[Rfam]
Background: The record is a 176-nucleotide RNA sequence from Oryza rufipogon, which matches "MIR807 microRNA precursor family" in Rfam. Its family is annotated with RISC complex and miRNA-mediated post-transcriptional gene silencing in the Gene Ontology. NCBI's taxonomy places the organism under Eukaryota, Streptophytina, Mesangiospermae, commelinids, Oryza.
RNA sequence: AACCACACUAUCGAUGAAUGGAUUCACCCGCGAGAUGACGUGGUUGUUUCACCUAGAACGAGGACAUGGCAUCCUAUUACCGGUCAUCGCAUGAAAUUAAUAGGAUGCCAUAUCCUCAUCCUAGAUAGAACAACCACGUCAUCUCACGGGUGAAUUCAUUCAUCGAUAGUGUAGUU
Numbered sequence: 001a002a003c004c005a006c007a008c009u010a011u012c013g014a015u016g017a018a019u020g021g022a023u024u025c026a027c028c029c030g031c032g033a034g035a036u037g038a039c040g041u042g043g044u045u046g047u048u049u050c051a052c053c054u055a056g057a058a059c060g061a062g063g064a065c066a067u068g069g070c071a072u073c074c075u076a077u078u079a080c081c082g083g084u085c086a087u088c089g090c091a092u093g094a095a096a097u098u099a100a101u102a103g104g105a106u107g108c109c110a111u112a113u114c115c116u117c118a119u120c121c122u123a124g125a126u127a128g129a130a131c132a133a134c135c136a137c138g139u140c141a142u143c144u145c146a147c148g149g150g151u152g153a154a155u156u157c158a159u160u161c162a163u164c165g166a167u168a169g170u171g172u173a174g175u176u
Base pairs, nucleotide, nucleotide: 001176002175003174005172006171007170009168010167011166012165013164014163015162017160018159019158021156022155023154024153025152026151027150028149030147032145033144035142036141037140038139039138041136042135043134044133045132046131047130048129051126054123055122058119063114064113069108070107071106072105073104074103075102076101077100078099079098086097087096